[Rfam]
RNA sequence: CCAACUUAUGGUAAUGGUAUCUACCUCGAACCGCUUGAAAAAGCUGAUGAUGCCUACAUGUAA
Numbered sequence: 001c002c003a004a005c006u007u008a009u010g011g012u013a014a015u016g017g018u019a020u021c022u023a024c025c026u027c028g029a030a031c032c033g034c035u036u037g038a039a040a041a042a043g044c045u046g047a048u049g050a051u052g053c054c055u056a057c058a059u060g061u062a063a
Stems, first nucleotide, its partner, number of pairs: 010025004016054006033044004
Dot-bracket structure: .........[[[[..((((((]]]].......((((....))))....)))))).........
Rfam assigns this 63-nucleotide RNA sequence from Butyricimonas sp. An62 to the family "Fluoride riboswitch aptamer (crcB RNA motif)". NCBI's taxonomy places the organism under Bacteria, Bacteroidia, Bacteroidales, Odoribacteraceae, Butyricimonas. Pairs were carried over by alignment from the consensus structure, which is taken from published work. The match comes from Rfam's covariance-model search (54 bits).